[Rfam]
RNA: c-di-GMP-I riboswitch aptamer
Organism: Paenibacillus swuensis
RNA sequence: AUUCGAUAACGGCAAACUUAUUGAAAAGUAAGGACGCAAAGCUUAGGGUCUAAGGUUACAACGCGAGUUGUAACGAUGGCAGCCUGGCUACCGAA
Numbered sequence: 001a002u003u004c005g006a007u008a009a010c011g012g013c014a015a016a017c018u019u020a021u022u023g024a025a026a027a028g029u030a031a032g033g034a035c036g037c038a039a040a041g042c043u044u045a046g047g048g049u050c051u052a053a054g055g056u057u058a059c060a061a062c063g064c065g066a067g068u069u070g071u072a073a074c075g076a077u078g079g080c081a082g083c084c085u086g087g088c089u090a091c092c093g094a095a
Stems, first nucleotide, its partner, number of pairs: 012037002017032006040089004045085003048080003055074008